[Rfam]
RNA sequence: GGAUGUGAUGAAUUUCUUGGAAUCUCGUUCGGCUGAACUCUGCUGUUGAGACUUGGAAAUCUGAUUGUC
Numbered sequence: 001g002g003a004u005g006u007g008a009u010g011a012a013u014u015u016c017u018u019g020g021a022a023u024c025u026c027g028u029u030c031g032g033c034u035g036a037a038c039u040c041u042g043c044u045g046u047u048g049a050g051a052c053u054u055g056g057a058a059a060u061c062u063g064a065u066u067g068u069c
Base pairs, nucleotide, nucleotide: 023051024050025049026048027047030045031044032043033042
RNA: Small nucleolar RNA SNORD30
Organism: Ornithorhynchus anatinus